A member of the RNA family "Ascomycota telomerase RNA" from Mollisia scopiformis, 164 nucleotides of a longer RNA. Clan: Telomerase clan. It is annotated as a non-coding RNA gene. The base pairs follow the family's consensus structure.

[Rfam]
RNA sequence: CACACAGUCACUCAUCCCCCGCGGUGUGUGUACCCCAUUUCCUCUCCCUCGUCAUUUCGGAGACGAGCGGCGGAGAAGUAAGCGGUUUUUGUUGAUGUAUUUUGUCCGUUUCUGGCCCUGUCCCUCCAUGAGGGUACAGAGGAAACAUAAAACUAAUCUCAGAG
Numbered sequence: 001c002a003c004a005c006a007g008u009c010a011c012u013c014a015u016c017c018c019c020c021g022c023g024g025u026g027u028g029u030g031u032a033c034c035c036c037a038u039u040u041c042c043u044c045u046c047c048c049u050c051g052u053c054a055u056u057u058c059g060g061a062g063a064c065g066a067g068c069g070g071c072g073g074a075g076a077a078g079u080a081a082g083c084g085g086u087u088u089u090u091g092u093u094g095a096u097g098u099a100u101u102u103u104g105u106c107c108g109u110u111u112c113u114g115g116c117c118c119u120g121u122c123c124c125u126c127c128a129u130g131a132g133g134g135u136a137c138a139g140a141g142g143a144a145a146c147a148u149a150a151a152a153c154u155a156a157u158c159u160c161a162g163a164g
Stems, first nucleotide, its partner, number of pairs: 007033002011030001013028002017024002038081002040077001042075003046070002049067001050065004094158003097153002100151003103147003116142002118139004124134003
Dot-bracket structure: ......((..(.((..((....))..)).).))....(((.(((.((.(((((........)))).).))..))).)..))............(((((.((((((..........((((((..(((.....))).)))).))..))).)))))..)))......